Annotation: Rfam assigns this 67-nucleotide RNA from Sarcophilus harrisii to the family "Small nucleolar RNA SNORD42". snoRNA U42 is found in intron 3 of the ribosomal protein L23a (RPL23a) gene in humans and is also present in mice. The organism belongs to Sarcophilus, within Eukaryota. By type it is a C/D-box small nucleolar RNA. Rfam links the family to the GO terms RNA processing and nucleolus. A search with the family's covariance model found it, with a score of 50 bits.
[Rfam]
RNA sequence: GUGCCCAUGAUGGAUACCUACUGUCUUCCUGAGAACGAUGAUGGUUUCAAAGGAACCACUGAGGCAU
Dot-bracket structure: (((((.........................................................)))))